[Rfam]
RNA sequence: UAAAUGUCACUCCAGACCAUAUCCUAAGCUCCUGAUAAUUAUGAAGGUAAACGUUUGCCUUCUCUCACCCUUAUUCCGCAAUCUUGAAUUGCGACACGCCGGGAAAACGACACAGGACGUCAGGAGGGGGUCAAUGGCCGGUACGCUAAUAAAUUUAGCGUGGAAUUUUGUCCUAUCUUGAUGAAAAGGGGAAGAGCAAAAGUGGAUAUCAGGUUAAAACCAGGAAGAUUUUUGACCUGAACUGUGUAAAAAUGAGCAAGCUCACUUUUCGUGGGGUGAUUAAAAGGAGAAAAAUUGAUGAGUUCCGAUCUGAAGUUUUCGCUGGUUACCACCGUUAUUGUGCUGGCAUUGAUUGUGGCCGGUGGUUUAACGGCUGCGCUGCACUGAUUC
Dot-bracket structure: ..............((((.(..(....).((((((.........((((((....)))))).................(((((.....)))))......(.(...........).)....)))))).).))))...........(.((..(..((.....))..)......((...((.....))...))...)).)..........................................(..........................(.(..((......))..).)...................).....................................................................................
RNA: Enterobacterial sRNA STnc550
Organism: Enterobacter cancerogenus